[Rfam]
Rfam assigns this 53-nucleotide RNA from Aquisalinus flavus to the family "serC leader". The match comes from Rfam's covariance-model search (51 bits). About the family: This family is a putative regulatory RNA structure that is found upstream of the serC-serA operon in some alpha-proteobacteria. The final stem of the structure overlaps the ribosome binding site of the serC reading frame. A reference for the family is Corbino et al. (2005), "Evidence for a second class of S-adenosylmethionine riboswitches and other regulatory RNA motifs in alpha-proteobacteria", Genome Biol. Pairs were carried over by alignment from the consensus structure.
RNA sequence: GCGCGGGCCACGCCGCCCCAACGCGGCGCGUCCUGUCUGUGAGGAUAGGAGUA
Numbered sequence: 001g002c003g004c005g006g007g008c009c010a011c012g013c014c015g016c017c018c019c020a021a022c023g024c025g026g027c028g029c030g031u032c033c034u035g036u037c038u039g040u041g042a043g044g045a046u047a048g049g050a051g052u053a
Stems, first nucleotide, its partner, number of pairs: 011028006033048006